Record summary: A member of the RNA family "tRNA" from Coniochaeta hoffmannii, 85 nucleotides long. By type it is a transfer RNA. The match comes from Rfam's covariance-model search (48 bits).
[Rfam]
RNA sequence: AGAGAAUUGGCCGAGAGGUUUAAGGCGGUAAAUUUGAGCUUUAUUUGGUUUUUAAAUCACAUCCGUUCGAAUCGGAUAUUCUCUG
Numbered sequence: 001a002g003a004g005a006a007u008u009g010g011c012c013g014a015g016a017g018g019u020u021u022a023a024g025g026c027g028g029u030a031a032a033u034u035u036g037a038g039c040u041u042u043a044u045u046u047g048g049u050u051u052u053u054a055a056a057u058c059a060c061a062u063c064c065g066u067u068c069g070a071a072u073c074g075g076a077u078a079u080u081c082u083c084u085g
Stems, first nucleotide, its partner, number of pairs: 001084007010026003028044005061077005